Notes: The family of this 61-nucleotide sequence is "RAGATH-18 RNA". The family's consensus secondary structure is taken from published work. It is annotated as a small RNA. Actinobacteria, Firmicutes, Fusobacteria, Thermotogae (1 example).
RNA sequence: CCUUUGGAGUGUCAAAAAACACGAGUAGGUUUAUCCGAAAGUGGACACGAUGAACAAGGAA
Numbered sequence: 001c002c003u004u005u006g007g008a009g010u011g012u013c014a015a016a017a018a019a020c021a022c023g024a025g026u027a028g029g030u031u032u033a034u035c036c037g038a039a040a041g042u043g044g045a046c047a048c049g050a051u052g053a054a055c056a057a058g059g060a061a
Stems, first nucleotide, its partner, number of pairs: 001059004009048005020043003028036002